[Rfam]
RNA sequence: CUUCUUUGUGGAAAUGAAGUUCUUCCAUGGGAUAACCUAAACCGCUUAUUAAGCUGAUGACUUCUACGAGUUU
Numbered sequence: 001c002u003u004c005u006u007u008g009u010g011g012a013a014a015u016g017a018a019g020u021u022c023u024u025c026c027a028u029g030g031g032a033u034a035a036c037c038u039a040a041a042c043c044g045c046u047u048a049u050u051a052a053g054c055u056g057a058u059g060a061c062u063u064c065u066a067c068g069a070g071u072u073u
Stems, first nucleotide, its partner, number of pairs: 010026004016064006044054003

Record summary:
Shown here is a 73-nucleotide RNA sequence from Firmicutes bacterium CAG:308, a member of the family "Fluoride riboswitch aptamer (crcB RNA motif)". It scores 50 bits against the family's covariance model. The source organism's lineage runs through Bacteria, Bacillati and Bacillota.